[Rfam]
RNA sequence: UGAAAAAAGAAUAUAACUCCGUAGACAGUAGGUGCUUUAAGCGUAACGUAAAACAACCUACCGAGGGUAGCAUAUAAGUUUAUUAUAGGUCUUCCUUUGUCUACGGGAAGGCCUUUAUUAAUACAAUA
Numbered sequence: 001u002g003a004a005a006a007a008a009g010a011a012u013a014u015a016a017c018u019c020c021g022u023a024g025a026c027a028g029u030a031g032g033u034g035c036u037u038u039a040a041g042c043g044u045a046a047c048g049u050a051a052a053a054c055a056a057c058c059u060a061c062c063g064a065g066g067g068u069a070g071c072a073u074a075u076a077a078g079u080u081u082a083u084u085a086u087a088g089g090u091c092u093u094c095c096u097u098u099g100u101c102u103a104c105g106g107g108a109a110g111g112c113c114u115u116u117a118u119u120a121a122u123a124c125a126a127u128a
Base pairs, nucleotide, nucleotide: 028061029060030059031058032057033056034042035041036040088113089112090111091110092109093108094107095106096105
The record is a 128-nucleotide RNA from Clostridium sp. DSM 8431, which matches "Ribosomal protein L10 leader" in Rfam.
Taxonomically the source falls in Clostridium (Bacteria, Bacillota, Eubacteriales, Clostridiaceae).
This family is a putative r-protein leader autoregulatory structure found in B. subtilis and other low-GC Gram-positive bacteria.
The family's RNA type in Rfam is cis-regulatory leader.